The record is a 138-nucleotide RNA sequence from Malus baccata, which matches "small nucleolar RNA snoR137" in Rfam. Rfam links the family to the GO terms nucleolus and RNA processing. Taxonomically the source falls in Malus (Eukaryota, Mesangiospermae, Rosaceae, Maleae). The family's RNA type in Rfam is H/ACA-box small nucleolar RNA.
RNA sequence: GUUGCUUCUUAUGGUGAACUCCCUGUAUACUUUGGUUGGGGAUGUUCAAGUUUCCGAAGCAUAGAAAAAAUAGCCAGUAUUAAACAGCACUGUGCGUAAUUUUUGCUUGCACCGUGUUACCUGUCUCCUGGUACAUUU
Dot-bracket structure: ..((((((......((((((((((.............))))).))))).......))))))...........(((((.(......(((.(.(((...............))).).))).......).)))))......